[Rfam]
RNA sequence: GCUUUCGAAGGAACAACCGUCCUUCCUCUUUCAGGCUCAAGUUUUUUGAGCCUGAAAGAGGAGGGACGGUUGUUCCUUCGAAAGC
Number, nucleotide and partner (000 for none) at each position: 001g000002c084003u083004u000005u000006c080007g079008a000009a077010g076011g075012a074013a073014c072015a071016a070017c069018c068019g067020u066021c065022c000023u063024u062025c061026c060027u059028c058029u057030u056031u055032c054033a000034g052035g051036c000037u049038c048039a047040a046041g000042u000043u000044u000045u000046u040047u039048g038049a037050g000051c035052c034053u000054g032055a031056a030057a029058g028059a027060g026061g025062a024063g023064g000065g021066a020067c019068g018069g017070u016071u015072g014073u013074u012075c011076c010077u009078u000079c007080g006081a000082a000083a003084g002085c000

A member of the RNA family "mir-1684 microRNA precursor family" from Armadillidium nasatum, 85 nucleotides long. Rfam links the family to the GO terms RISC complex and miRNA-mediated post-transcriptional gene silencing. The source organism's lineage runs through Eukaryota, Isopoda, Crinocheta, Armadillidiidae and Armadillidium.